A member of the RNA family "Bacterial RNase P class A" from Synergistes jonesii, 349 nucleotides long. Rfam classes the family as a ribozyme. Rfam describes the family as follows. Ribonuclease P (RNase P) is a ubiquitous endoribonuclease, found in archaea, bacteria and eukarya as well as chloroplasts and mitochondria. Its best characterised activity is the generation of mature 5'-ends of tRNAs by cleaving the 5'-leader elements of precursor-tRNAs. Cellular RNase Ps are ribonucleoproteins. Its family is annotated with dimeric ribonuclease P complex, ribonuclease P activity and tRNA processing in the Gene Ontology. The family's consensus secondary structure is taken from published work.

[Rfam]
RNA sequence: GGAGUAUCCAAACCGGCCGCCGGCGCUCAGGCGCGGGAGGAAAGUCCGGGCUCCGCAGGGCGGGAUGCAGGAGAAAUUCCUGCGGGUGCGAACUCAGGGAAAGUGCCGCAGAAAAGAAUACCGCCGCGAAAGCGGUAAGGGUGAAAAGGCGGGGUAAGAGCCCACCGGCCGCAUGGGGAACCAGCGGGCCAGGCAAACCCCAUCCGGAGCAAGGUCGAAUAGGGAAGGUUGAGGCUGCCCGCCGACUUCCGGGUACGACCGCUGAUUCGUGCGUGCAAGCGCGCGAUUAGAUAAAUGGCCGGAAAGAGCUGCGCUCUUCACAAAACCCGGCUUACUGGGUGCUCUUCAU
Numbered sequence: 001g002g003a004g005u006a007u008c009c010a011a012a013c014c015g016g017c018c019g020c021c022g023g024c025g026c027u028c029a030g031g032c033g034c035g036g037g038a039g040g041a042a043a044g045u046c047c048g049g050g051c052u053c054c055g056c057a058g059g060g061c062g063g064g065a066u067g068c069a070g071g072a073g074a075a076a077u078u079c080c081u082g083c084g085g086g087u088g089c090g091a092a093c094u095c096a097g098g099g100a101a102a103g104u105g106c107c108g109c110a111g112a113a114a115a116g117a118a119u120a121c122c123g124c125c126g127c128g129a130a131a132g133c134g135g136u137a138a139g140g141g142u143g144a145a146a147a148g149g150c151g152g153g154g155u156a157a158g159a160g161c162c163c164a165c166c167g168g169c170c171g172c173a174u175g176g177g178g179a180a181c182c183a184g185c186g187g188g189c190c191a192g193g194c195a196a197a198c199c200c201c202a203u204c205c206g207g208a209g210c211a212a213g214g215u216c217g218a219a220u221a222g223g224g225a226a227g228g229u230u231g232a233g234g235c236u237g238c239c240c241g242c243c244g245a246c247u248u249c250c251g252g253g254u255a256c257g258a259c260c261g262c263u264g265a266u267u268c269g270u271g272c273g274u275g276c277a278a279g280c281g282c283g284c285g286a287u288u289a290g291a292u293a294a295a296u297g298g299c300c301g302g303a304a305a306g307a308g309c310u311g312c313g314c315u316c317u318u319c320a321c322a323a324a325a326c327c328c329g330g331c332u333u334a335c336u337g338g339g340u341g342c343u344c345u346u347c348a349u
Base pairs, nucleotide, nucleotide: 001345002344003343004342005341006340007339008338009337010336013302014301015300016299017298018297020037021036023034024033025032026031042333043332044331046330047329048328049327050326051209052208053207054206058240059239060238061237063205064204065203066202067201068082069081070080071079072078083097084095085094086093087092098200099199103198104197105194106193107192121140122139123136124135125134126133127132148166149165151163152162153161168189169187170186171185172184174183175182176181213260214259215258216257223250224249225248226247227246233243234242235241267286268285269284270283271282272281273280274279